[Rfam]
RNA sequence: GGCUGACUUUAUCCUCUCACUGCUUGGAGUCUUAGGCAGUGAGACUUUUGUCCAUCAUAUAUCUAAGCUGACUUGUCUUCACUCAGGGCACCAUAGGUAUGGGUUGGCUGUCCGUUGGUGCCUUCUGAUUUUUGCAGAGUCAAACAAUU
Numbered sequence: 001g002g003c004u005g006a007c008u009u010u011a012u013c014c015u016c017u018c019a020c021u022g023c024u025u026g027g028a029g030u031c032u033u034a035g036g037c038a039g040u041g042a043g044a045c046u047u048u049u050g051u052c053c054a055u056c057a058u059a060u061a062u063c064u065a066a067g068c069u070g071a072c073u074u075g076u077c078u079u080c081a082c083u084c085a086g087g088g089c090a091c092c093a094u095a096g097g098u099a100u101g102g103g104u105u106g107g108c109u110g111u112c113c114g115u116u117g118g119u120g121c122c123u124u125c126u127g128a129u130u131u132u133u134g135c136a137g138a139g140u141c142a143a144a145c146a147a148u149u
Stems, first nucleotide, its partner, number of pairs: 002056001004054002008050001015044005021038004070141005083128005088121005096113002099111003